[Rfam]
RNA sequence: GGAGGAGGAAUCCAAAGGGAUCGCAUUGAUCCCAACUUAGCUAUUUUUAUGCAAAGUCUUUGUUUGUGGAUCAUGCAAUCUCUUUGGAUUUAUCCUU
Numbered sequence: 001g002g003a004g005g006a007g008g009a010a011u012c013c014a015a016a017g018g019g020a021u022c023g024c025a026u027u028g029a030u031c032c033c034a035a036c037u038u039a040g041c042u043a044u045u046u047u048u049a050u051g052c053a054a055a056g057u058c059u060u061u062g063u064u065u066g067u068g069g070a071u072c073a074u075g076c077a078a079u080c081u082c083u084u085u086g087g088a089u090u091u092a093u094c095c096u097u
Base pairs, nucleotide, nucleotide: 002097003096004095005094006093008091009090010089011088012087013086014085015084016083017082018081019080020079021078023076024075025074026073028072029071030070031069032068
Shown here is a 97-nucleotide sequence from Spinacia oleracea, a member of the family "mir-393 microRNA precursor family". Pairs were carried over by alignment from the consensus structure. On this family, see Kruszka et al., J Plant Physiol 2012: "Role of microRNAs and other sRNAs of plants in their changing environments". A search with the family's covariance model found it, with a score of 85 bits. NCBI's taxonomy places the organism under Eukaryota, Tracheophyta, Euphyllophyta, Spermatophyta, Spinacia.